[Rfam]
RNA sequence: UUUGUUGCCUACAGAACUUAUAACGAACAUGGUUCUUGCCUUUUACCAGAACCAUCCGGGUGUUGUCUCCAUUAAAACAGGCAAAGCUGUCCGUUACUGUGAACUUGUCGCAUUU
Dot-bracket structure: ..((((....((((.(((..........((((((((...........))))))))...))).)))).........))))................(.((((.......)))).).
Numbered sequence: 001u002u003u004g005u006u007g008c009c010u011a012c013a014g015a016a017c018u019u020a021u022a023a024c025g026a027a028c029a030u031g032g033u034u035c036u037u038g039c040c041u042u043u044u045a046c047c048a049g050a051a052c053c054a055u056c057c058g059g060g061u062g063u064u065g066u067c068u069c070c071a072u073u074a075a076a077a078c079a080g081g082c083a084a085a086g087c088u089g090u091c092c093g094u095u096a097c098u099g100u101g102a103a104c105u106u107g108u109c110g111c112a113u114u115u
Stems, first nucleotide, its partner, number of pairs: 003079004011066004016061003029055008096114001098112004

Description
This 115-nucleotide sequence from Saccharomyces kudriavzevii belongs to the Rfam family "U5 spliceosomal RNA". Rfam's curators write: U5 RNA is a component of both types of known spliceosome. The sequence is in the family's curated seed alignment.